[Rfam]
Small nucleolar RNA SNORD47: a 76-nucleotide RNA from Geococcyx californianus. The family's consensus secondary structure was predicted with ILM. By type it is a C/D-box small nucleolar RNA.
RNA sequence: AGCCACUGAUGAAAUUUGAUUCUGCCAAAUGAAUGGCUGUGAUUUUAAACUUCCCGUUGUACUUUUUUCUGAGGUU
Numbered sequence: 001a002g003c004c005a006c007u008g009a010u011g012a013a014a015u016u017u018g019a020u021u022c023u024g025c026c027a028a029a030u031g032a033a034u035g036g037c038u039g040u041g042a043u044u045u046u047a048a049a050c051u052u053c054c055c056g057u058u059g060u061a062c063u064u065u066u067u068u069c070u071g072a073g074g075u076u
Stems, first nucleotide, its partner, number of pairs: 001076004